Description:
The family of this 64-nucleotide sequence from Trifolium medium is "MIR5291 microRNA precursor family".
RNA sequence: GAUGGAUCAAAUCCAAUCCAUUAACACUUAUACAAUAUAUUGGAUGAAUUGGAUGGAUUUUUUU
Number, nucleotide and partner (000 for none) at each position: 001g000002a000003u000004g060005g059006a058007u057008c056009a000010a000011a054012u053013c052014c051015a050016a049017u048018c000019c046020a045021u044022u043023a000024a000025c000026a000027c000028u000029u000030a000031u000032a000033c000034a000035a000036u000037a000038u000039a000040u000041u000042g000043g022044a021045u020046g019047a000048a017049u016050u015051g014052g013053a012054u011055g000056g008057a007058u006059u005060u004061u000062u000063u000064u000
The source organism's lineage runs through Eukaryota, Viridiplantae, Spermatophyta, eudicotyledons and Trifolium. The family's consensus secondary structure was predicted with RNAalifold. Rfam links the family to the GO terms RISC complex and miRNA-mediated post-transcriptional gene silencing.